[Rfam]
RNA sequence: AAUUAGGUUGGUGGAAAAGUAAUUGCGUUUUUUGCCAUUGAAAAUAAUGGCAAAAACCGCAAUUACUUUUCCACCAACCUAAUA
Dot-bracket structure: .((((((((((((((((((((((((((.((((((((((((....)))))))))))).)))))))))))))))))))))))))).
Numbered sequence: 001a002a003u004u005a006g007g008u009u010g011g012u013g014g015a016a017a018a019g020u021a022a023u024u025g026c027g028u029u030u031u032u033u034g035c036c037a038u039u040g041a042a043a044a045u046a047a048u049g050g051c052a053a054a055a056a057c058c059g060c061a062a063u064u065a066c067u068u069u070u071c072c073a074c075c076a077a078c079c080u081a082a083u084a
Stems, first nucleotide, its partner, number of pairs: 002083026029056012
Rfam assigns this 84-nucleotide sequence from Aotus nancymaae to the family "mir-548 microRNA precursor family". Rfam links the family to the GO terms RISC complex and miRNA-mediated post-transcriptional gene silencing. Pairs were carried over by alignment from the consensus structure, which was predicted with WAR. On this family, see Witten et al., BMC Biol 2010: "Ultra-high throughput sequencing-based small RNA discovery and discrete statistical biomarker analysis in a collection of cervical tumours and matched controls". The family has 11 seed sequences and 3,009 matches in Rfam 15.1.